A member of the RNA family "Small nucleolar RNA Z157/R69/R10" from Cucumis sativus, 101 nucleotides long.
The literature on the family includes a 2003 paper in Nucleic Acids Res by Chen et al., "The high diversity of snoRNAs in plants: identification and comparative study of 120 snoRNA genes from Oryza sativa".
It is annotated as a C/D-box small nucleolar RNA.
The source organism's lineage runs through Eukaryota, Euphyllophyta, Cucurbitaceae, Benincaseae and Cucumis.
The family has 10 seed sequences and 836 matches in Rfam 15.1.

RNA sequence: UCAAGUGCUGUGAUGAUGCUAUAUUUUAUGGACUAGAGUUUCCGAUCUGGGUAUUAUUCCCGGUAUCUGAUUGGUAUACCCUUGGCUGUCUUAGCACUUCC
Numbered sequence: 001u002c003a004a005g006u007g008c009u010g011u012g013a014u015g016a017u018g019c020u021a022u023a024u025u026u027u028a029u030g031g032a033c034u035a036g037a038g039u040u041u042c043c044g045a046u047c048u049g050g051g052u053a054u055u056a057u058u059c060c061c062g063g064u065a066u067c068u069g070a071u072u073g074g075u076a077u078a079c080c081c082u083u084g085g086c087u088g089u090c091u092u093a094g095c096a097c098u099u100c101c
Stems, first nucleotide, its partner, number of pairs: 003099006041070002046065001047063005